[Rfam]
RNA: mir-26 microRNA precursor family
RNA sequence: AUGCAGCCUGGUUCAAGUAAUCCAGGAUAGGCUGGCGUCUCAGACCCCGCGGCCUGUCCUUGCUUACUUGGACCAGGAGGUAG
Numbered sequence: 001a002u003g004c005a006g007c008c009u010g011g012u013u014c015a016a017g018u019a020a021u022c023c024a025g026g027a028u029a030g031g032c033u034g035g036c037g038u039c040u041c042a043g044a045c046c047c048c049g050c051g052g053c054c055u056g057u058c059c060u061u062g063c064u065u066a067c068u069u070g071g072a073c074c075a076g077g078a079g080g081u082a083g
Stems, first nucleotide, its partner, number of pairs: 002082003007077006014070007022062001024060010